The family of this 118-nucleotide RNA sequence from Pogona vitticeps is "Small nucleolar RNA SNORA26". The family's consensus secondary structure was predicted with RNAalifold. The family is grouped with related families in Rfam's "SNORA27 clan". NCBI's taxonomy places the organism under Eukaryota, Chordata, Episquamata, Agamidae, Pogona. The literature on the family includes a 2001 paper in EMBO J by Huttenhofer et al., "RNomics: an experimental approach that identifies 201 candidates for novel, small, non-messenger RNAs in mouse". Rfam describes the family as follows. The snoRNA HBI-6 belong to the H/ACA family of snoRNAs, guiding the pseudouridylation of position U4522 if the 28S rRNA. HBI-6 is the human orthologue of mouse MBI-6 snoRNA. By type it is an H/ACA-box small nucleolar RNA.

RNA sequence: UUGCCCUCUUAAGGCUGUUAGUGCUUUAAGUGGCCAGUAUGGAGGGGUAAAUUAAUUCUCCCUUAAACCUAGAGUUGAGGAUAGUACUUAACUCUGGAUCCUGUCUGGAGGAACAAAA
Numbered sequence: 001u002u003g004c005c006c007u008c009u010u011a012a013g014g015c016u017g018u019u020a021g022u023g024c025u026u027u028a029a030g031u032g033g034c035c036a037g038u039a040u041g042g043a044g045g046g047g048u049a050a051a052u053u054a055a056u057u058c059u060c061c062c063u064u065a066a067a068c069c070u071a072g073a074g075u076u077g078a079g080g081a082u083a084g085u086a087c088u089u090a091a092c093u094c095u096g097g098a099u100c101c102u103g104u105c106u107g108g109a110g111g112a113a114c115a116a117a118a
Base pairs, nucleotide, nucleotide: 002049003048004047005046006045007044009042010041014038015037016036017035019030056112058110059109060108061107069097070096071095072094073093074092075091077089078088079087